[Rfam]
Nucleotides: 183
Stems, first nucleotide, its partner, number of pairs: 004179001006177003010173002012170004017166002030152004035147006056127003060123001062121004069116001071114005081105002086101005
Number, partner (000 for none) and nucleotide at each position: 001000u002000g003000u004179u005000c006177c007176c008175u009000c010173g011172a012170g013169u014168g015167u016000u017166g018165g019000a020000g021000a022000a023000a024000g025000g026000u027000u028000a029000c030152g031151u032150c033149c034000c035147u036146g037145a038144g039143c040142c041000g042000a043000u044000a045000a046000a047000c048000u049000u050000u051000u052000c053000u054000u055000a056127g057126g058125a059000a060123c061000u062121c063120a064119g065118u066000u067000c068000a069116g070000a071114u072113u073112g074111c075110u076000a077000u078000u079000g080000c081105g082104c083000a084000a085000g086101c087100u088099c089098g090097g091000c092000a093000u094000g095000u096000a097090c098089c099088g100087a101086g102000a103000a104082g105081c106000c107000u108000a109000c110075g111074g112073u113072a114071a115000c116069u117000a118065a119064c120063u121062g122000c123060g124000c125058u126057c127056c128000g129000c130000c131000u132000u133000g134000a135000g136000c137000c138000u139000u140000a141000g142040g143039g144038u145037u146036c147035a148000a149033g150032g151031g152030c153000u154000g155000a156000c157000a158000c159000c160000u161000g162000a163000u164000a165018c166017c167015g168014c169013a170012c171000u172011u173010u174000u175008g176007g177006g178000a179004a180000c181000a182000c183000c